A member of the RNA family "Makes More Granules Regulator RNA (mmgR)" from Sphingomonas sp. AP4-R1, 73 nucleotides long. The family's RNA type in Rfam is small RNA. A reference for the family is Ceizel Borella et al. (2018), "Expression of the small regulatory RNA gene mmgR is regulated negatively by AniA and positively by NtrC in Sinorhizobium meliloti 2011", Microbiology. From the family's description: SuhB later renamed mmgR (makes more granules regulator) was a putative non-coding RNA found multiple times in the Agrobacterium tumefaciens genome and related alpha-proteobacteria. It scores 43 bits against the family's covariance model.

[Rfam]
RNA sequence: AGAAUACGCCUUUCAGGCAUCCUCUCCCAACUUCGAUGGGCCGGUCCUCUGACCGGCCUUUUUUUUGCCCGCG
Numbered sequence: 001a002g003a004a005u006a007c008g009c010c011u012u013u014c015a016g017g018c019a020u021c022c023u024c025u026c027c028c029a030a031c032u033u034c035g036a037u038g039g040g041c042c043g044g045u046c047c048u049c050u051g052a053c054c055g056g057c058c059u060u061u062u063u064u065u066u067g068c069c070c071g072c073g
Base pairs, nucleotide, nucleotide: 008018009017010016011015039058040057041056042055043054044053045052046051